msiK RNA: a 59-nucleotide RNA sequence from Tessaracoccus flavescens.
RNA sequence: AUAGGUUCCUAUCCACUACGGAUCGUCGGGCACGUACCUGCCCGUGGAAAGGAAAUGUG
Numbered sequence: 001a002u003a004g005g006u007u008c009c010u011a012u013c014c015a016c017u018a019c020g021g022a023u024c025g026u027c028g029g030g031c032a033c034g035u036a037c038c039u040g041c042c043c044g045u046g047g048a049a050a051g052g053a054a055a056u057g058u059g
Base pairs, nucleotide, nucleotide: 009051010050012048013047014046015045027044028043029042030041031040032039
The family has 120 seed sequences and 1,374 matches in Rfam 15.1. The base pairs follow the family's consensus structure, which is taken from published work. A search with the family's covariance model found it, with a score of 58 bits.